c-di-GMP-II-GAG riboswitch aptamer: an 85-nucleotide RNA from Deinococcus peraridilitoris. On this family, see Weinberg et al., Proc Natl Acad Sci U S A 2017: "Bioinformatic analysis of riboswitch structures uncovers variant classes with altered ligand specificity". Taxonomically the source falls in Deinococcus peraridilitoris (Bacteria, Thermotogati, Deinococci, Deinococcaceae). Clan: c-di-GMP_II riboswitch clan. Gene Ontology terms of the family: cyclic-di-GMP binding and regulation of gene expression.

RNA sequence: CUCCCUCCUGAUGCGCAAUGACCUGCCUUCCAUACCCGGUCACCCGGAAGACAGCGAGCCAAUGGUGAGACCGACCAGGAGAACC
Numbered sequence: 001c002u003c004c005c006u007c008c009u010g011a012u013g014c015g016c017a018a019u020g021a022c023c024u025g026c027c028u029u030c031c032a033u034a035c036c037c038g039g040u041c042a043c044c045c046g047g048a049a050g051a052c053a054g055c056g057a058g059c060c061a062a063u064g065g066u067g068a069g070a071c072c073g074a075c076c077a078g079g080a081g082a083a084c085c
Stems, first nucleotide, its partner, number of pairs: 005081006013060001015059002023054003027050004038072002040068005